Rfam assigns this 91-nucleotide RNA from Arthrobacter sp. UKPF54-2 to the family "DUF3800-IV RNA". A search with the family's covariance model found it, with a score of 90 bits. It is annotated as a small RNA.
[Rfam]
RNA sequence: ACGGCUCUUGGGGAGCCUGCCAGGGAACGCCCGCGAUGCUGCCAUCGCUCUCCUUAAGUGGAUCGGCCCUUGGAGGCUCCCGGGGAGCCGU
Numbered sequence: 001a002c003g004g005c006u007c008u009u010g011g012g013g014a015g016c017c018u019g020c021c022a023g024g025g026a027a028c029g030c031c032c033g034c035g036a037u038g039c040u041g042c043c044a045u046c047g048c049u050c051u052c053c054u055u056a057a058g059u060g061g062a063u064c065g066g067c068c069c070u071u072g073g074a075g076g077c078u079c080c081c082g083g084g085g086a087g088c089c090g091u
Base pairs, nucleotide, nucleotide: 001091002090003089004088005087006086007085008084009083011081012080013079014078015077016076017075018074020073021072022071023070024069025068029067030066031065033048034047035046036045037044038043051062052061053060